The family of this 119-nucleotide RNA from Streptomyces sp. ERV7 is "Streptomyces-metK RNA".

RNA sequence: GCGAGACAAGUGGCCCGGUGACCGGUACCGACCGAUAAACUGGUGGUGGAACGACGCCGGGCGCAGCCUCCGGCCCGUGCCACCCAUGAUCAGCCAGCAGCCGCUGCAACCCCAGGGAG
Numbered sequence: 001g002c003g004a005g006a007c008a009a010g011u012g013g014c015c016c017g018g019u020g021a022c023c024g025g026u027a028c029c030g031a032c033c034g035a036u037a038a039a040c041u042g043g044u045g046g047u048g049g050a051a052c053g054a055c056g057c058c059g060g061g062c063g064c065a066g067c068c069u070c071c072g073g074c075c076c077g078u079g080c081c082a083c084c085c086a087u088g089a090u091c092a093g094c095c096a097g098c099a100g101c102c103g104c105u106g107c108a109a110c111c112c113c114a115g116g117g118a119g
Stems, first nucleotide, its partner, number of pairs: 048081002051078003056074001058072004095106004